[Rfam]
Nucleotides: 363
Stems, first nucleotide, its partner, number of pairs: 001363004008357001010355001014291001019286001022073004036061003083347005092237004135146004149163005165233004170229002187219003293335006
Number, partner (000 for none) and nucleotide at each position: 001363g002362c003361c004360u005000c006000g007000c008357c009000a010355a011000a012000g013000c014291u015000g016000c017000g018000u019286u020000u021000c022073u023072u024071u025070g026000c027000u028000c029000a030000c031000a032000a033000a034000c035000g036061g037060a038059c039000g040000c041000u042000g043000g044000g045000g046000u047000u048000c049000g050000c051000c052000c053000c054000a055000g056000c057000c058000u059038g060037u061036c062000u063000a064000c065000u066000a067000c068000u069000g070025c071024a072023a073022a074000u075000g076000a077000g078000a079000a080000a081000u082000u083347c084346g085345g086344a087343g088000u089000a090000a091000u092237c093236u094235u095234c096000a097000c098000u099000u100000c101000u102000u103000u104000g105000c106000c107000a108000u109000c110000u111000c112000g113000c114000c115000u116000c117000g118000c119000g120000a121000g122000c123000u124000c125000u126000g127000a128000c129000a130000u131000u132000a133000c134000u135146g136145c137144c138143c139000g140000u141000g142000a143138g144137g145136g146135c147000c148000u149163g150162g151161c152160g153159u154000g155000a156000c157000u158000c159153a160152c161151g162150u163149c164000u165233g166232c167231a168230u169000u170229u171228g172000g173000c174000a175000u176000c177000a178000g179000a180000a181000a182000g183000u184000c185000c186000a187219g188218g189217g190000c191000c192000c193000a194000u195000g196000a197000g198000a199000c200000u201000a202000c203000g204000g205000u206000u207000g208000a209000g210000u211000g212000g213000u214000g215000u216000c217189c218188c219187u220000a221000u222000g223000g224000g225000a226000g227000u228171c229170g230168g231167u232166g233165c234095g235094a236093a237092g238000a239000u240000u241000g242000u243000g244000u245000g246000c247000u248000g249000u250000a251000u252000g253000c254000u255000c256000g257000a258000c259000a260000g261000a262000g263000c264000u265000c266000c267000a268000g269000c270000g271000a272000c273000a274000c275000c276000a277000u278000a279000g280000u281000a282000c283000a284000a285000u286019a287000c288000g289000c290000a291014g292000c293335g294334u295333a296332u297331c298330g299000a300000u301000c302000u303000c304000g305000a306000c307000u308000a309000g310000c311000u312000c313000u314000u315000g316000u317000a318000g319000c320000g321000a322000a323000a324000g325000a326000g327000g328000g329000a330298u331297g332296g333295u334294a335293u336000c337000a338000u339000u340000c341000g342000a343087u344086u345085c346084c347083g348000a349000u350000u351000a352000c353000u354000c355010u356000g357008g358000c359000g360004a361003g362002g363001c

Rfam assigns this 363-nucleotide RNA from Lophiostoma macrostomum to the family "Nuclear RNase P". Rfam describes the family as follows. Ribonuclease P (RNase P) is a ubiquitous endoribonuclease, found in archaea, bacteria and eukarya as well as chloroplasts and mitochondria. Its best characterised activity is the generation of mature 5'-ends of tRNAs by cleaving the 5'-leader elements of precursor-tRNAs. Cellular RNase Ps are ribonucleoproteins. RNA from bacterial RNase Ps retains its catalytic activity in the absence of the protein subunit, i.e. it is a ribozyme. The source organism's lineage runs through Eukaryota, Opisthokonta, Fungi, Lophiostoma and Lophiostoma macrostomum. The base pairs follow the family's consensus structure, which is taken from published work. It is annotated as a ribozyme.